A member of the RNA family "ZMP/ZTP riboswitch aptamer (pfl RNA motif)" from Paenibacillus polymyxa, 82 nucleotides long. Taxonomically the source falls in Paenibacillus polymyxa (Bacteria, Bacillota, Bacilli, Paenibacillaceae). Rfam links the family to the GO terms regulation of purine nucleotide biosynthetic process and one-carbon metabolic process.

[Rfam]
RNA sequence: AGAAUCCGGUGUAACUGGCGACAAAAGUGGGAUCAACCACGAUGGAGCAUCGGAUAUACGGCCGGUCGCCUGGGCAAAAGAG
Numbered sequence: 001a002g003a004a005u006c007c008g009g010u011g012u013a014a015c016u017g018g019c020g021a022c023a024a025a026a027g028u029g030g031g032a033u034c035a036a037c038c039a040c041g042a043u044g045g046a047g048c049a050u051c052g053g054a055u056a057u058a059c060g061g062c063c064g065g066u067c068g069c070c071u072g073g074g075c076a077a078a079a080g081a082g
Stems, first nucleotide, its partner, number of pairs: 004055009015044001017070005027040004061075003